[Rfam]
RNA sequence: GUCGGCUAUGGAGAUAUGCGUCCAGUAGGUAUAUUCGGUAAAAUUGUUGGAUCAAUGUGUGCUAUCGCUGGUGUGUUAACAAUUGCUCUGCCAGUUCCCGUUAUUGUCUCUAAU
Numbered sequence: 001g002u003c004g005g006c007u008a009u010g011g012a013g014a015u016a017u018g019c020g021u022c023c024a025g026u027a028g029g030u031a032u033a034u035u036c037g038g039u040a041a042a043a044u045u046g047u048u049g050g051a052u053c054a055a056u057g058u059g060u061g062c063u064a065u066c067g068c069u070g071g072u073g074u075g076u077u078a079a080c081a082a083u084u085g086c087u088c089u090g091c092c093a094g095u096u097c098c099c100g101u102u103a104u105u106g107u108c109u110c111u112a113a114u
Stems, first nucleotide, its partner, number of pairs: 001114002004111002008107004013102003018097001020095002037077004049063002
Potassium channel RNA editing signal: a 114-nucleotide sequence from Adineta ricciae. By type it is a cis-regulatory element. It scores 91 bits against the family's covariance model. This family represents a group of sequences related to the human potassium channel Kv1.1 hairpin element which directs the efficient modification of an adenosine to inosine by an adenosine deaminase acting on RNA (ADAR). The ADAR modification causes an isoleucine/valine recoding event which lies in the ion-conducting pore of the potassium channel. It is thought that this editing event targets the process of fast inactivation and allows a more rapid recovery from inactivation at negative potentials. Its family is annotated with adenosine to inosine editing in the Gene Ontology. Pairs were carried over by alignment from the consensus structure, which is taken from published work.